[Rfam]
RNA sequence: AUCUAGCAUCAGGAGUGAGCGAAAGCUCCGCCAACCUGCCCUCCCAGGCAAGGUGGCGCAGAAUGUGGCCUCAUUGAGGCAAUCAACUGGGAUUCA
Numbered sequence: 001a002u003c004u005a006g007c008a009u010c011a012g013g014a015g016u017g018a019g020c021g022a023a024a025g026c027u028c029c030g031c032c033a034a035c036c037u038g039c040c041c042u043c044c045c046a047g048g049c050a051a052g053g054u055g056g057c058g059c060a061g062a063a064u065g066u067g068g069c070c071u072c073a074u075u076g077a078g079g080c081a082a083u084c085a086a087c088u089g090g091g092a093u094u095c096a
Base pairs, nucleotide, nucleotide: 006066007065008064009063015029017028018027019026020025030057031056032055035053036052037051038049039048040047042092043091044090045089046088068080069079070078071077
SAM-I/IV (S-adenosyl methionine) riboswitch aptamer: a 96-nucleotide sequence. Clan: SAM clan.